Shown here is a 148-nucleotide sequence from Strongylocentrotus purpuratus, a member of the family "Vault RNA". Rfam's curators write: This family of RNAs are found as part of the enigmatic vault ribonucleoprotein complex. The complex consists of a major vault protein (MVP), two minor vault proteins (VPARP and TEP1), and several small untranslated RNA molecules. Lineage of the source: Eukaryota > Deuterostomia > Echinozoa > Camarodonta > Strongylocentrotus. A search with the family's covariance model found it, with a score of 35 bits. It is annotated as a non-coding RNA gene.
RNA sequence: AUGUCGGCCAAGCAAUGUGGAUACUUCGUUUCAAACACCGGUUUAAUAACAAAUAAAUGGCUACGGUGGGUGGCGUCACUCACGCCACUGAGCGCUUGAGGGUUCGAUCCCGCCUAUCCAGCAUCCACAUGCGCAAUCCGACGUUUUG
Numbered sequence: 001a002u003g004u005c006g007g008c009c010a011a012g013c014a015a016u017g018u019g020g021a022u023a024c025u026u027c028g029u030u031u032c033a034a035a036c037a038c039c040g041g042u043u044u045a046a047u048a049a050c051a052a053a054u055a056a057a058u059g060g061c062u063a064c065g066g067u068g069g070g071u072g073g074c075g076u077c078a079c080u081c082a083c084g085c086c087a088c089u090g091a092g093c094g095c096u097u098g099a100g101g102g103u104u105c106g107a108u109c110c111c112g113c114c115u116a117u118c119c120a121g122c123a124u125c126c127a128c129a130u131g132c133g134c135a136a137u138c139c140g141a142c143g144u145u146u147u148g
Base pairs, nucleotide, nucleotide: 002143003142004141005140006139007138012132013131014130017128018127019126020125026107027106028105